[Rfam]
RNA sequence: CAAGUCCCCGUCAGGUAAGGUCUGGCCAACCACCUGUACCGAGUGUUGCGUCCGGUUAGGACAGACAUACCGUCGAACGACCCGGGCGAAGCGUACACAGGGAAUCAUGCAGGCCACAGGGAGUGAGGCGCACUCCUGAAGCAUGGAACAGCGUCGUUACGAGUAUAAGAGCAGUCGGCCAUGUUUUUAACGUGACAGAAGCCAACACAAAGGAAUCGCUGUUUGGCGAGAUUCCGGAGGGGCUGCCGGCGUCCACAGGGCG
Numbered sequence: 001c002a003a004g005u006c007c008c009c010g011u012c013a014g015g016u017a018a019g020g021u022c023u024g025g026c027c028a029a030c031c032a033c034c035u036g037u038a039c040c041g042a043g044u045g046u047u048g049c050g051u052c053c054g055g056u057u058a059g060g061a062c063a064g065a066c067a068u069a070c071c072g073u074c075g076a077a078c079g080a081c082c083c084g085g086g087c088g089a090a091g092c093g094u095a096c097a098c099a100g101g102g103a104a105u106c107a108u109g110c111a112g113g114c115c116a117c118a119g120g121g122a123g124u125g126a127g128g129c130g131c132a133c134u135c136c137u138g139a140a141g142c143a144u145g146g147a148a149c150a151g152c153g154u155c156g157u158u159a160c161g162a163g164u165a166u167a168a169g170a171g172c173a174g175u176c177g178g179c180c181a182u183g184u185u186u187u188u189a190a191c192g193u194g195a196c197a198g199a200a201g202c203c204a205a206c207a208c209a210a211a212g213g214a215a216u217c218g219c220u221g222u223u224u225g226g227c228g229a230g231a232u233u234c235c236g237g238a239g240g241g242g243c244u245g246c247c248g249g250c251g252u253c254c255a256c257a258g259g260g261c262g
Base pairs, nucleotide, nucleotide: 012036013035014034015033019031020030021029023229025227026226039101040100043098044097045096046095047093048092049088050087051086052085053084054083055082057080059078145256146254151252152251153250154249155248156247171246172245173244174243175242176241177203178202179201182197183196184195185194208240212235213234214233215232216231217230
This 262-nucleotide sequence from Desulfonema magnum belongs to the Rfam family "Group II catalytic intron D1-D4-6". Group II introns are found in rRNA, tRNA and mRNA of organelles in fungi, plants and protists, and also in mRNA in bacteria. NCBI's taxonomy places the organism under Bacteria, Desulfobacteria, Desulfobacterales, Desulfococcaceae, Desulfonema.